[Rfam]
RNA sequence: UUAUAAGAUGUGAUAAAUAUGUCCAUAAAUACAAACGCAGAUGUGAACUGAGUAUAUCAUCAUGCCCGUGUAUGCGCAAUAUAAAAAGAGUCUGGUAAAUUUGUCCAGACUUUUUUUUGU
Numbered sequence: 001u002u003a004u005a006a007g008a009u010g011u012g013a014u015a016a017a018u019a020u021g022u023c024c025a026u027a028a029a030u031a032c033a034a035a036c037g038c039a040g041a042u043g044u045g046a047a048c049u050g051a052g053u054a055u056a057u058c059a060u061c062a063u064g065c066c067c068g069u070g071u072a073u074g075c076g077c078a079a080u081a082u083a084a085a086a087a088g089a090g091u092c093u094g095g096u097a098a099a100u101u102u103g104u105c106c107a108g109a110c111u112u113u114u115u116u117u118u119g120u
Base pairs, nucleotide, nucleotide: 033073035071036070037069038068041063042062043061084116085115086114087113088112089111090110091109092108093107094106095105